[Rfam]
RNA sequence: GGGGGCACAAAGGCCUGUCCAUGGUGGAAGGCUAUAAUUUCUCGCUGAUUUCAGGAGUUUUAUUUAUGCGUA
Numbered sequence: 001g002g003g004g005g006c007a008c009a010a011a012g013g014c015c016u017g018u019c020c021a022u023g024g025u026g027g028a029a030g031g032c033u034a035u036a037a038u039u040u041c042u043c044g045c046u047g048a049u050u051u052c053a054g055g056a057g058u059u060u061u062a063u064u065u066a067u068g069c070g071u072a
Stems, first nucleotide, its partner, number of pairs: 012033005018028003037063002041057003045054003
A member of the RNA family "Repression of heat shock gene expression (ROSE) element" from Oryza sativa, 72 nucleotides long.
From the family's description: This family represents a 5' UTR cis-regulatory element found in heat shock mRNAs and is known as the ROSE (repression of heat shock gene expression) element.
For this family Rfam cites "A mRNA-based thermosensor controls expression of rhizobial heat shock genes" (Nocker et al., Nucleic Acids Res, 2001).
It scores 77 bits against the family's covariance model.
By type it is an RNA thermoregulator.